[Rfam]
RNA sequence: UGAUUUGGUCUUCGUUUGAGUAUCCUUACGGGCUCUUCAAACAGAUGAUUACCAAAUUCGAAUAUAGGAGAUGUGUUAGUGGCCCGUAUUGCUGGCAUUAACGUCCCUGAU
Numbered sequence: 001u002g003a004u005u006u007g008g009u010c011u012u013c014g015u016u017u018g019a020g021u022a023u024c025c026u027u028a029c030g031g032g033c034u035c036u037u038c039a040a041a042c043a044g045a046u047g048a049u050u051a052c053c054a055a056a057u058u059c060g061a062a063u064a065u066a067g068g069a070g071a072u073g074u075g076u077u078a079g080u081g082g083c084c085c086g087u088a089u090u091g092c093u094g095g096c097a098u099u100a101a102c103g104u105c106c107c108u109g110a111u
Stems, first nucleotide, its partner, number of pairs: 004056006010047001012045002024095002029086004037110003
Dot-bracket structure: ...(((((((.((..........[[...[[[[....{{{....)).)...))))))..........................]]]].......]]............}}}.
Shown here is a 111-nucleotide RNA sequence from Pseudoalteromonas translucida, a member of the family "Alpha operon ribosome binding site". The bacterial alpha operon ribosome binding site is surrounded by this complex pseudoknotted structure. Translation of the mRNA produces 4 ribosomal protein products, one of which (S4) acts as a translational repressor by binding to the nested pseudoknot region. The mechanism of repression is thought to involve a conformational switch in the pseudoknot region and ribosome entrapment. Pairs were carried over by alignment from the consensus structure, which is taken from published work. By type it is a cis-regulatory element.